[Rfam]
RNA: Small nucleolar RNA SNORD72
Organism: Pleuronectes platessa
RNA sequence: UGCUUACCAAUGAUGGUUGAAAAAAAUGUCUGAACAAAUGAAAUCUAAUGAUAUCAGUAUUUUCUCUGAGGUAAGCU
Numbered sequence: 001u002g003c004u005u006a007c008c009a010a011u012g013a014u015g016g017u018u019g020a021a022a023a024a025a026a027u028g029u030c031u032g033a034a035c036a037a038a039u040g041a042a043a044u045c046u047a048a049u050g051a052u053a054u055c056a057g058u059a060u061u062u063u064c065u066c067u068g069a070g071g072u073a074a075g076c077u
Stems, first nucleotide, its partner, number of pairs: 002076007